[Rfam]
RNA sequence: UCUUCCUUACAAAAGAACUGUGCUAAAACUGUGAAAUCCAUUUAAUGGAUUUGACAGUAAUGCUAGCAGAGUAUAAACGGGAAGAAGAGUAUUUGCACUGUACUGCAAAAGAGACUUGGUUGGACCUCUUUCUUAAUGUCCAGUGUCCAUGUUCUCAAGGUCCAGUGCUACAUUC
Numbered sequence: 001u002c003u004u005c006c007u008u009a010c011a012a013a014a015g016a017a018c019u020g021u022g023c024u025a026a027a028a029c030u031g032u033g034a035a036a037u038c039c040a041u042u043u044a045a046u047g048g049a050u051u052u053g054a055c056a057g058u059a060a061u062g063c064u065a066g067c068a069g070a071g072u073a074u075a076a077a078c079g080g081g082a083a084g085a086a087g088a089g090u091a092u093u094u095g096c097a098c099u100g101u102a103c104u105g106c107a108a109a110a111g112a113g114a115c116u117u118g119g120u121u122g123g124a125c126c127u128c129u130u131u132c133u134u135a136a137u138g139u140c141c142a143g144u145g146u147c148c149a150u151g152u153u154c155u156c157a158a159g160g161u162c163c164a165g166u167g168c169u170a171c172a173u174u175c
Stems, first nucleotide, its partner, number of pairs: 018071002021068005028061001030059002034052002037049005095168006102161001119144001121142004